[Rfam]
RNA sequence: CCUAUUGUUUCACCAAUAGUAGCCUACGAGCAGGUGCGCUUGUACAAGGGUAUCAAGCUGCUCGGACAAGGUAGCCCUCCCGAAAGGGUAAGAAUGAACCGUGAGGGAAAUUCAAAGGUCGCAAGCAUUAUGCGGUUGGGGAG
Numbered sequence: 001c002c003u004a005u006u007g008u009u010u011c012a013c014c015a016a017u018a019g020u021a022g023c024c025u026a027c028g029a030g031c032a033g034g035u036g037c038g039c040u041u042g043u044a045c046a047a048g049g050g051u052a053u054c055a056a057g058c059u060g061c062u063c064g065g066a067c068a069a070g071g072u073a074g075c076c077c078u079c080c081c082g083a084a085a086g087g088g089u090a091a092g093a094a095u096g097a098a099c100c101g102u103g104a105g106g107g108a109a110a111u112u113c114a115a116a117g118g119u120c121g122c123a124a125g126c127a128u129u130a131u132g133c134g135g136u137u138g139g140g141g142a143g
Base pairs, nucleotide, nucleotide: 002019003018004017005016006015007014028063029062030061031060032059033054034053035052036051037050039048040047041046079088080087081086092113093112094111095110099106100105118136119135120134121133122132123131

The record is a 143-nucleotide sequence from Bacteroides caecimuris, which matches "Group II catalytic intron D1-D4-7" in Rfam. The match comes from Rfam's covariance-model search (113 bits). Rfam links the family to the GO term Group II intron splicing. NCBI's taxonomy places the organism under Bacteria, Bacteroidia, Bacteroidales, Bacteroidaceae, Bacteroides. The base pairs follow the family's consensus structure. On this family, see Chu et al., EMBO J 2001: "Control of branch-site choice by a group II intron".